[Rfam]
RNA sequence: AAGUGUGUGAGGAGCGAACCAGUUAAGGGCACCGAGACGAAACACGGCCAGUCGUCGGUGCUCUUU
Number, nucleotide and partner (000 for none) at each position: 001a000002a000003g000004u000005g000006u000007g000008u000009g000010a000011g000012g000013a000014g000015c000016g000017a000018a000019c000020c000021a000022g000023u000024u000025a000026a064027g063028g062029g061030c060031a059032c058033c057034g056035a055036g053037a052038c051039g000040a000041a000042a000043c000044a000045c000046g000047g000048c000049c000050a000051g038052u037053c036054g000055u035056c034057g033058g032059u031060g030061c029062u028063c027064u026065u000066u000
Shown here is a 66-nucleotide RNA sequence from Thermosynechococcus vestitus, a member of the family "Cyano-1 RNA". The family has 265 seed sequences and 283 matches in Rfam 15.1. The family's RNA type in Rfam is small RNA.